The record is a 163-nucleotide RNA from Callithrix jacchus, which matches "U1 spliceosomal RNA" in Rfam. Pairs were carried over by alignment from the consensus structure, which is taken from published work.
[Rfam]
RNA sequence: AUACUUACCUAACAGUGGAGAUACUAUGAUCACAAAGGUGGUUUUCCCAGGGAGAGGCUUAUCCAUUACACUCUGGAUGUGCUGACCCAUGCGAUUUCCCCAAAUGUAGGAAACUCAACUGCAUAAUUUGUGGUGGUGGGGACUGCAGUUAUGCUGUCCCCUG
Numbered sequence: 001a002u003a004c005u006u007a008c009c010u011a012a013c014a015g016u017g018g019a020g021a022u023a024c025u026a027u028g029a030u031c032a033c034a035a036a037g038g039u040g041g042u043u044u045u046c047c048c049a050g051g052g053a054g055a056g057g058c059u060u061a062u063c064c065a066u067u068a069c070a071c072u073c074u075g076g077a078u079g080u081g082c083u084g085a086c087c088c089a090u091g092c093g094a095u096u097u098c099c100c101c102a103a104a105u106g107u108a109g110g111a112a113a114c115u116c117a118a119c120u121g122c123a124u125a126a127u128u129u130g131u132g133g134u135g136g137u138g139g140g141g142a143c144u145g146c147a148g149u150u151a152u153g154c155u156g157u158c159c160c161c162u163g
Stems, first nucleotide, its partner, number of pairs: 013121003017047005023042005049090001051088002054086001056083003060079005093116002095113003099109001138161005145154003
Annotation:
The source organism's lineage runs through Eukaryota, Eutheria, Haplorrhini, Callithrix and Callithrix. A search with the family's covariance model found it, with a score of 118 bits. U1 is a small nuclear RNA (snRNA) component of the spliceosome (involved in pre-mRNA splicing). Its 5' end forms complementary base pairs with the 5' splice junction, thus defining the 5' donor site of an intron. There are significant differences in sequence and secondary structure between metazoan and yeast U1 snRNAs, the latter being much longer (568 nucleotides as compared to 164 nucleotides in human). Nevertheless, secondary structure predictions suggest that all U1 snRNAs share a 'common core' consisting of helices I, II, the proximal region of III, and IV. This family does not contain the larger yeast sequences.